Rfam assigns this 479-nucleotide part of an RNA from Dimorphilus gyrociliatus to the family "Microsporidia small subunit ribosomal RNA". The base pairs follow the family's consensus structure, which is taken from published work. Clan: SSU clan. The literature on the family includes a 2001 paper in Science by Yusupov et al., "Crystal structure of the ribosome at 5.5 A resolution". It scores 1178 bits against the family's covariance model. Lineage of the source: Eukaryota > Eumetazoa > Spiralia > Dinophilidae > Dimorphilus. Rfam links the family to the GO terms structural constituent of ribosome and ribosome.

[Rfam]
RNA sequence: AAUCAGAUUGAUUCUGUCUGACGUGGACGCUAGUUUCACAGAUUUAGCCAUGCAUGUGUAAGCGAACCUUCGGGGGAGCGGCGUACGGCUCAGUAACGGACUUUGAUUUGAUCUGCGCGGGCGGACAACCUCGGGAAACUGAGGGGAAUACGCAAGGCGUGUAGCCAGUGGGCUACAGGUAUAGCGGAGCGGCGGAGAGUAAGAAGUCAGCCCAUCAGUUAGUAAGUAGGGUAAAGGCCUAUUUAGACGAAUACGGGUACGGGGAAUUAGGGUUUGAUUCCGGAGAGGGAGCCUGAGAGACGGCUACCAGGUCCAAGGACGGCAGCAGGCACGAAACUUACCGAAGCCUGCAAGCAGGGCGGUAGUGAAGAAACGUUUGUUUAGAAGGAUUUGUAAACAAGAUGCUAGUAACUGGAGGUCAAGUCUGGUGCCAGCAUCCGCGGUAAUACCAGCUCCAGGGGUGUCUAUGAUUUUUGCUG
Numbered sequence: 001a002a003u004c005a006g007a008u009u010g011a012u013u014c015u016g017u018c019u020g021a022c023g024u025g026g027a028c029g030c031u032a033g034u035u036u037c038a039c040a041g042a043u044u045u046a047g048c049c050a051u052g053c054a055u056g057u058g059u060a061a062g063c064g065a066a067c068c069u070u071c072g073g074g075g076g077a078g079c080g081g082c083g084u085a086c087g088g089c090u091c092a093g094u095a096a097c098g099g100a101c102u103u104u105g106a107u108u109u110g111a112u113c114u115g116c117g118c119g120g121g122c123g124g125a126c127a128a129c130c131u132c133g134g135g136a137a138a139c140u141g142a143g144g145g146g147a148a149u150a151c152g153c154a155a156g157g158c159g160u161g162u163a164g165c166c167a168g169u170g171g172g173c174u175a176c177a178g179g180u181a182u183a184g185c186g187g188a189g190c191g192g193c194g195g196a197g198a199g200u201a202a203g204a205a206g207u208c209a210g211c212c213c214a215u216c217a218g219u220u221a222g223u224a225a226g227u228a229g230g231g232u233a234a235a236g237g238c239c240u241a242u243u244u245a246g247a248c249g250a251a252u253a254c255g256g257g258u259a260c261g262g263g264g265a266a267u268u269a270g271g272g273u274u275u276g277a278u279u280c281c282g283g284a285g286a287g288g289g290a291g292c293c294u295g296a297g298a299g300a301c302g303g304c305u306a307c308c309a310g311g312u313c314c315a316a317g318g319a320c321g322g323c324a325g326c327a328g329g330c331a332c333g334a335a336a337c338u339u340a341c342c343g344a345a346g347c348c349u350g351c352a353a354g355c356a357g358g359g360c361g362g363u364a365g366u367g368a369a370g371a372a373a374c375g376u377u378u379g380u381u382u383a384g385a386a387g388g389a390u391u392u393g394u395a396a397a398c399a400a401g402a403u404g405c406u407a408g409u410a411a412c413u414g415g416a417g418g419u420c421a422a423g424u425c426u427g428g429u430g431c432c433a434g435c436a437u438c439c440g441c442g443g444u445a446a447u448a449c450c451a452g453c454u455c456c457a458g459g460g461g462u463g464u465c466u467a468u469g470a471u472u473u474u475u476g477c478u479g
Base pairs, nucleotide, nucleotide: 004020005019006018007017008016022469023468024467025466026465027464028463029462030461031460033374034373035372036371037370039367040366041332047330048329049328051327052326053325056082057081062079063078067074068073089285090284091283097210099208100207101206102205103204104203107202108201112198113197114196116194117193118192121153122152123151129144130143131142132141133140134139211257212256213255218248219247220246223245224244225243226242227241228240229239230238260282261281262280263279264275265274266273267272287308288307290305291304292303311320312319313318338364340363341362342361347358348357349356350355386406387405389403390402391401412458413457414456415455416454417453425452426451427450428449434441435440